[Rfam]
RNA sequence: UAUGAUAUGGGUGUCAAAAGUCAAAAAUGCGUACAUGCUUGCAUGUUAAGCAUUUUGACUUUAUGACCCGAACAAAUAUGAGGAAUAAGCAAUUUACGCAGUAAAUUAGCGGUUUCCGAAUAUUUGCAGAAUUGCGAAAAUGACUUUAGUCAUGGAGCAAUUCGUAUAUCAUA
Numbered sequence: 001u002a003u004g005a006u007a008u009g010g011g012u013g014u015c016a017a018a019a020g021u022c023a024a025a026a027a028u029g030c031g032u033a034c035a036u037g038c039u040u041g042c043a044u045g046u047u048a049a050g051c052a053u054u055u056u057g058a059c060u061u062u063a064u065g066a067c068c069c070g071a072a073c074a075a076a077u078a079u080g081a082g083g084a085a086u087a088a089g090c091a092a093u094u095u096a097c098g099c100a101g102u103a104a105a106u107u108a109g110c111g112g113u114u115u116c117c118g119a120a121u122a123u124u125u126g127c128a129g130a131a132u133u134g135c136g137a138a139a140a141u142g143a144c145u146u147u148a149g150u151c152a153u154g155g156a157g158c159a160a161u162u163c164g165u166a167u168a169u170c171a172u173a
Stems, first nucleotide, its partner, number of pairs: 001173007010068003017062007025055006032048001033046005073126007082117004089110002091107007129163007140153004